[Rfam]
Source information: Rfam assigns this 46-nucleotide sequence from Mytilus galloprovincialis to the family "Histone 3' UTR stem-loop". Its family is annotated with mRNA 3'-end processing by stem-loop binding and cleavage in the Gene Ontology.
RNA sequence: CCAAAGGCCCUUUUCAGGGCCAACCAAUUAUUUCAAAAAGAGUCUU
Numbered sequence: 001c002c003a004a005a006g007g008c009c010c011u012u013u014u015c016a017g018g019g020c021c022a023a024c025c026a027a028u029u030a031u032u033u034c035a036a037a038a039a040g041a042g043u044c045u046u
Base pairs, nucleotide, nucleotide: 006021007020008019009018010017011016

Annotation
Rfam 15.1 lists 44,596 matches to the family in 976 species. The family's RNA type in Rfam is cis-regulatory element. From the family's description: The mRNAs of metazoan histone genes lack a poly-A tail. 3' end processing occurs at a site between a highly conserved stem-loop (modelled by this family) and a purine rich region around 20 nts downstream (the histone downstream element, or HDE). The stem-loop is bound by a 31 kDa stem-loop binding protein (SLBP - also termed the histone hairpin binding protein, or HBP). Together with U7 snRNA binding of the HDE, SLBP binding nucleate s the formation of the processing complex.